[Rfam]
RNA sequence: UAGAAGUUCCAUCUAUAAAUGGAUAAGACCCCGGUCUUAAUCUUAAUCAUAUAAUAAGGUUUUGAAAAAUAAAGGAGCAAUAACGUCCCCUUGAUAAAACAAGAAGUCGAUUAUUGCUCCUUUAUU
Numbered sequence: 001u002a003g004a005a006g007u008u009c010c011a012u013c014u015a016u017a018a019a020u021g022g023a024u025a026a027g028a029c030c031c032c033g034g035u036c037u038u039a040a041u042c043u044u045a046a047u048c049a050u051a052u053a054a055u056a057a058g059g060u061u062u063u064g065a066a067a068a069a070u071a072a073a074g075g076a077g078c079a080a081u082a083a084c085g086u087c088c089c090c091u092u093g094a095u096a097a098a099a100c101a102a103g104a105a106g107u108c109g110a111u112u113a114u115u116g117c118u119c120c121u122u123u124a125u126u
Stems, first nucleotide, its partner, number of pairs: 008023005071123013090103003
Shown here is a 126-nucleotide RNA sequence from Swertia hispidicalyx, a member of the family "Plastid-psbA-1 3UTR RNA". About the family: Plastid psbA-1 is a non-coding RNA (ncRNA) present in plastids. It was identified in inverted repeat sequences in the 3 prime untranslate region (3UTR) of photosystem II quinone-binding protein (psbA). NCBI's taxonomy places the organism under Eukaryota, Euphyllophyta, Spermatophyta, Swertiinae, Swertia. On this family, see Richter et al., Plant Commun 2023: "Retrograde signaling in plants: A critical review focusing on the GUN pathway and beyond".